[Rfam]
RNA: Bacterial RNase P class A
RNA sequence: UCUGCUGGCUGGCGGGUGGCUCCCCAAAUGGGGGGAGGAAAGUCCGGGCUCCGCAGGAGACUGUGCAGGGUAACGCCCUGGCGCCCGCAAGGGCGACGGAAAGUGCCACAGAAACGCAGACCGCCCGCAAGGGCAAGGGUGAAACGGUGCGGUAAGAGCGCACCAGCGUGCGCGCAAGCGCUCGGCUGGGCAAACCCCACAGGGAGCAAGGUCGAAUAGGGAGGGGAUGAAGCGCUCCGCAGACCCUCCGGGUUGACCGCGUGAGGCUUCGCGCAAGCGAACGCCCCAGAGAGAUCACCCGCUCAAACAGAACCCGGCUUACACGCCAGCAGAGCGC
Numbered sequence: 001u002c003u004g005c006u007g008g009c010u011g012g013c014g015g016g017u018g019g020c021u022c023c024c025c026a027a028a029u030g031g032g033g034g035g036a037g038g039a040a041a042g043u044c045c046g047g048g049c050u051c052c053g054c055a056g057g058a059g060a061c062u063g064u065g066c067a068g069g070g071u072a073a074c075g076c077c078c079u080g081g082c083g084c085c086c087g088c089a090a091g092g093g094c095g096a097c098g099g100a101a102a103g104u105g106c107c108a109c110a111g112a113a114a115c116g117c118a119g120a121c122c123g124c125c126c127g128c129a130a131g132g133g134c135a136a137g138g139g140u141g142a143a144a145c146g147g148u149g150c151g152g153u154a155a156g157a158g159c160g161c162a163c164c165a166g167c168g169u170g171c172g173c174g175c176a177a178g179c180g181c182u183c184g185g186c187u188g189g190g191c192a193a194a195c196c197c198c199a200c201a202g203g204g205a206g207c208a209a210g211g212u213c214g215a216a217u218a219g220g221g222a223g224g225g226g227a228u229g230a231a232g233c234g235c236u237c238c239g240c241a242g243a244c245c246c247u248c249c250g251g252g253u254u255g256a257c258c259g260c261g262u263g264a265g266g267c268u269u270c271g272c273g274c275a276a277g278c279g280a281a282c283g284c285c286c287c288a289g290a291g292a293g294a295u296c297a298c299c300c301g302c303u304c305a306a307a308c309a310g311a312a313c314c315c316g317g318c319u320u321a322c323a324c325g326c327c328a329g330c331a332g333a334g335c336g337c
Base pairs, nucleotide, nucleotide: 001333002332003331004330005329006328007327008326009325011322012302013301014300015299016298017297018296020035021034022033023032024031025030040320041319042318044317045316046315047314048313049206050205051204052203056238057237058236059235061202062201063200064199065198066080067079068078069077070076081097082095083094084093085092098197099196103195104194105191106190107189121138122137123134124133125132126131146164147163148162149161150160151159166186167184168183170181171180172179173178210258211257212256213255220249221248222247223246224245225244232240233239265285266284267283268281269280270279271278272277